[Rfam]
RNA sequence: CGCAUAUUUCGCCCAGGCGGAGCUCGACCGCCGAUUCAAGCCGUGAAGGCCUUCAUCGAUGAGCACCGCGGUGCGUACGGGGUCGAGCCGAUCUGCAGGGUCAUGCAGAUCGCCCCG
Dot-bracket structure: ...............(((((.......))))).............................................(((((......((.((((((......)))))).)))))))
Numbered sequence: 001c002g003c004a005u006a007u008u009u010c011g012c013c014c015a016g017g018c019g020g021a022g023c024u025c026g027a028c029c030g031c032c033g034a035u036u037c038a039a040g041c042c043g044u045g046a047a048g049g050c051c052u053u054c055a056u057c058g059a060u061g062a063g064c065a066c067c068g069c070g071g072u073g074c075g076u077a078c079g080g081g082g083u084c085g086a087g088c089c090g091a092u093c094u095g096c097a098g099g100g101u102c103a104u105g106c107a108g109a110u111c112g113c114c115c116c117g
Stems, first nucleotide, its partner, number of pairs: 016032005078117005089112002092109006
Shown here is a 117-nucleotide sequence from Ramlibacter cellulosilyticus, a member of the family "ALIL pseudoknot". By type it is a cis-regulatory element. A search with the family's covariance model found it, with a score of 119 bits. NCBI's taxonomy places the organism under Bacteria, Pseudomonadati, Pseudomonadota, Comamonadaceae, Ramlibacter. Rfam links the family to the GO term positive regulation of translational frameshifting.